The family of this 215-nucleotide RNA sequence from Proteiniborus ethanoligenes is "T-box leader". Rfam 15.1 lists 19,395 matches to the family in 1,923 species.
[Rfam]
RNA sequence: UAAUACGCAAUGAAGGGAAAUAGUAAGUAUUUAAGGUUCUCAGAGAAGAAAUCCAUGGCUGAAAGAUUUCUAACCCAAUGAAUACUGAACCCAUCCUAGAGCUUCUAGACUGAACAAAGUAAGUCUAGACGGUUGUUACCGUUAUUUAUGUAGAGUGGACUAUAUAAUCUAUAGUCUAUUAGGGUGGUACCGCGGAUAUAACCUUCGUCCCUUUU
Numbered sequence: 001u002a003a004u005a006c007g008c009a010a011u012g013a014a015g016g017g018a019a020a021u022a023g024u025a026a027g028u029a030u031u032u033a034a035g036g037u038u039c040u041c042a043g044a045g046a047a048g049a050a051a052u053c054c055a056u057g058g059c060u061g062a063a064a065g066a067u068u069u070c071u072a073a074c075c076c077a078a079u080g081a082a083u084a085c086u087g088a089a090c091c092c093a094u095c096c097u098a099g100a101g102c103u104u105c106u107a108g109a110c111u112g113a114a115c116a117a118a119g120u121a122a123g124u125c126u127a128g129a130c131g132g133u134u135g136u137u138a139c140c141g142u143u144a145u146u147u148a149u150g151u152a153g154a155g156u157g158g159a160c161u162a163u164a165u166a167a168u169c170u171a172u173a174g175u176c177u178a179u180u181a182g183g184g185u186g187g188u189a190c191c192g193c194g195g196a197u198a199u200a201a202c203c204u205u206c207g208u209c210c211c212u213u214u215u
Base pairs, nucleotide, nucleotide: 007102008101015097016096017095018094026086027085028084029083030082031081036074037073038072047071048070049069050068051067052066105128106127107126108125109124110123111122130141131140132139158176159175160174161173162172163171164170181212182211183210184209192208193207194206195205196204
A search with the family's covariance model found it, with a score of 157 bits. The literature on the family includes a 2003 paper in J Mol Biol by Gerdeman et al., "Solution structure of the Bacillus subtilis T-box antiterminator RNA: seven nucleotide bulge characterized by stacking and flexibility". It is annotated as a cis-regulatory leader. The family's consensus secondary structure is taken from published work. About the family: Uncharged tRNA acts as the effector for transcription antitermination of genes in the T-box leader family. T-boxes are found upstream of many aminoacyl-tRNA synthetase genes and some amino acid biosynthetic genes usually in Gram-positive bacteria.